Record summary: U5 spliceosomal RNA: a 120-nucleotide RNA sequence from Centaurea solstitialis. The organism belongs to Centaurea, within Eukaryota. The match comes from Rfam's covariance-model search (86 bits). By type it is a spliceosomal small nuclear RNA. Rfam's curators write: U5 RNA is a component of both types of known spliceosome. The precise function of this molecule is unknown, though it is known that the 5' loop is required for splice site selection and p220 binding, and that both the 3' stem-loop and the Sm site are important for Sm protein binding and cap methylation. The base pairs follow the family's consensus structure, which is taken from published work. For this family Rfam cites "The uRNA database" (Zwieb, Nucleic Acids Res, 1997).
[Rfam]
RNA sequence: AGCCAUGCAAUGAGCACAAAGCGAACUAUUCUUUCGCCUUUUACUAAAGAAUACCGUGUGCUCGUUGUCUAAAGUGGCAUACGCUUCUUUUUGGAGAGGUGUUCAUUUAUUUGAAUGCCU
Numbered sequence: 001a002g003c004c005a006u007g008c009a010a011u012g013a014g015c016a017c018a019a020a021g022c023g024a025a026c027u028a029u030u031c032u033u034u035c036g037c038c039u040u041u042u043a044c045u046a047a048a049g050a051a052u053a054c055c056g057u058g059u060g061c062u063c064g065u066u067g068u069c070u071a072a073a074g075u076g077g078c079a080u081a082c083g084c085u086u087c088u089u090u091u092u093g094g095a096g097a098g099g100u101g102u103u104c105a106u107u108u109a110u111u112u113g114a115a116u117g118c119c120u
Stems, first nucleotide, its partner, number of pairs: 003077004008067011027053008095120001098119006